[Rfam]
RNA sequence: AAAACAAACAGAAGGAGCUCGCUUUUCUGGCGCCAAGACGAGCUUCAGUUAUGCGAUUCGUGGCCUCGGCUUCAUCCUCGGACGGUUCUGAGAAGGCGGUCAAGUAUUACAGGGGAUCGGUACGGAGCAGAGUGCUCUAGCAGGAUGGCAUUUUCGGCCAUCGCCGGAUGAUGGUCUCGGCGUUUGAAUGUGGUUGCUGGACCGGGACCCAUCUCGAGUUGGAGUCAAAGUUUCGCACUUGUCCGUAUCGGCGACUGCGUUUGAACGCCAGCCACGUCUGCGCACUGCCGGCGACCUUGAUGACUCUUGUCACAUCCUCAUUGGCGGGGAAGGCUCUUUUGGUUGUCCCUCUACCAGGAAUGGGCUGAGGGACAACCCC
Numbered sequence: 001a002a003a004a005c006a007a008a009c010a011g012a013a014g015g016a017g018c019u020c021g022c023u024u025u026u027c028u029g030g031c032g033c034c035a036a037g038a039c040g041a042g043c044u045u046c047a048g049u050u051a052u053g054c055g056a057u058u059c060g061u062g063g064c065c066u067c068g069g070c071u072u073c074a075u076c077c078u079c080g081g082a083c084g085g086u087u088c089u090g091a092g093a094a095g096g097c098g099g100u101c102a103a104g105u106a107u108u109a110c111a112g113g114g115g116a117u118c119g120g121u122a123c124g125g126a127g128c129a130g131a132g133u134g135c136u137c138u139a140g141c142a143g144g145a146u147g148g149c150a151u152u153u154u155c156g157g158c159c160a161u162c163g164c165c166g167g168a169u170g171a172u173g174g175u176c177u178c179g180g181c182g183u184u185u186g187a188a189u190g191u192g193g194u195u196g197c198u199g200g201a202c203c204g205g206g207a208c209c210c211a212u213c214u215c216g217a218g219u220u221g222g223a224g225u226c227a228a229a230g231u232u233u234c235g236c237a238c239u240u241g242u243c244c245g246u247a248u249c250g251g252c253g254a255c256u257g258c259g260u261u262u263g264a265a266c267g268c269c270a271g272c273c274a275c276g277u278c279u280g281c282g283c284a285c286u287g288c289c290g291g292c293g294a295c296c297u298u299g300a301u302g303a304c305u306c307u308u309g310u311c312a313c314a315u316c317c318u319c320a321u322u323g324g325c326g327g328g329g330a331a332g333g334c335u336c337u338u339u340u341g342g343u344u345g346u347c348c349c350u351c352u353a354c355c356a357g358g359a360a361u362g363g364g365c366u367g368a369g370g371g372a373c374a375a376c377c378c379c
Stems, first nucleotide, its partner, number of pairs: 206226003209222003228240004
Rfam assigns this 379-nucleotide part of an RNA from Escovopsis weberi to the family "Ascomycota telomerase RNA". Taxonomically the source falls in Escovopsis (Eukaryota, Ascomycota, leotiomyceta, Hypocreales). The family is grouped with related families in Rfam's "Telomerase clan". It scores 257 bits against the family's covariance model.